[Rfam]
RNA sequence: GUUAGAGGUUGGGUCUUUGCGGGCAAGGUGAGUAGUUAAAUUUACUCUCAACUGGCCUACAAAGUCCCAGUUUCUGGC
Numbered sequence: 001g002u003u004a005g006a007g008g009u010u011g012g013g014u015c016u017u018u019g020c021g022g023g024c025a026a027g028g029u030g031a032g033u034a035g036u037u038a039a040a041u042u043u044a045c046u047c048u049c050a051a052c053u054g055g056c057c058u059a060c061a062a063a064g065u066c067c068c069a070g071u072u073u074c075u076g077g078c
Stems, first nucleotide, its partner, number of pairs: 003076006010069004015064005021058004026053002029050002

The family of this 78-nucleotide RNA from Danio rerio is "mir-193 microRNA precursor family". Pairs were carried over by alignment from the consensus structure, which was predicted with RNAalifold. NCBI's taxonomy places the organism under Eukaryota, Bilateria, Chordata, Actinopteri, Danio. For this family Rfam cites "Small RNA expression and strain specificity in the rat" (Linsen et al., BMC Genomics, 2010).